Ribosomal protein L20 leader: a 128-nucleotide RNA sequence from Lactococcus fujiensis.
Gene Ontology term of the family: regulation of gene expression.
NCBI's taxonomy places the organism under Bacteria, Bacillati, Streptococcaceae, Lactococcus, Lactococcus fujiensis.

RNA sequence: GUUGAAAAGCAGAAGCACCCGCUUCUCGCCUUAGAGGUUAUAGCCCUGGGCAAACGAAUGGAAUUAUUCACAAAAACGAAUGUUUUCAUGAGCGGGGCGAGAUUGUCGUUCCGCUUUUGUUUUUCUUA
Numbered sequence: 001g002u003u004g005a006a007a008a009g010c011a012g013a014a015g016c017a018c019c020c021g022c023u024u025c026u027c028g029c030c031u032u033a034g035a036g037g038u039u040a041u042a043g044c045c046c047u048g049g050g051c052a053a054a055c056g057a058a059u060g061g062a063a064u065u066a067u068u069c070a071c072a073a074a075a076a077c078g079a080a081u082g083u084u085u086u087c088a089u090g091a092g093c094g095g096g097g098c099g100a101g102a103u104u105g106u107c108g109u110u111c112c113g114c115u116u117u118u119g120u121u122u123u124u125c126u127u128a
Stems, first nucleotide, its partner, number of pairs: 011026006028051003034046001036044001091115010